[Rfam]
RNA sequence: AAGUACCUCUGAGUCCGUCGGACGAUACGUCCGCGGAUAGGAGUAACGGCUGGUUGGCGCAGCCAUCGACUCACCUGUUCGACAAGUCAACGGGUGGAUUCCACCCACAAGAACAGGUUGUGUCGUAGACCUUAAUAUCCCAACUGCGGUCGGGAAUCCUCGCCCUUCAGGACGGGAG
Numbered sequence: 001a002a003g004u005a006c007c008u009c010u011g012a013g014u015c016c017g018u019c020g021g022a023c024g025a026u027a028c029g030u031c032c033g034c035g036g037a038u039a040g041g042a043g044u045a046a047c048g049g050c051u052g053g054u055u056g057g058c059g060c061a062g063c064c065a066u067c068g069a070c071u072c073a074c075c076u077g078u079u080c081g082a083c084a085a086g087u088c089a090a091c092g093g094g095u096g097g098a099u100u101c102c103a104c105c106c107a108c109a110a111g112a113a114c115a116g117g118u119u120g121u122g123u124c125g126u127a128g129a130c131c132u133u134a135a136u137a138u139c140c141c142a143a144c145u146g147c148g149g150u151c152g153g154g155a156a157u158c159c160u161c162g163c164c165c166u167u168c169a170g171g172a173c174g175g176g177a178g
Stems, first nucleotide, its partner, number of pairs: 003047002007043004013038003019033006048064005067125004072120001074117007093106002097102001138155004143150002157178001159176004164171002
The record is a 178-nucleotide RNA from Halovivax ruber, which matches "Sense overlapping transcript RNA 0042 (sot)" in Rfam. Pairs were carried over by alignment from the consensus structure, which was predicted with RNAfold. By type it is a small RNA. The match comes from Rfam's covariance-model search (130 bits). Rfam 15.1 lists 196 matches to the family in 82 species.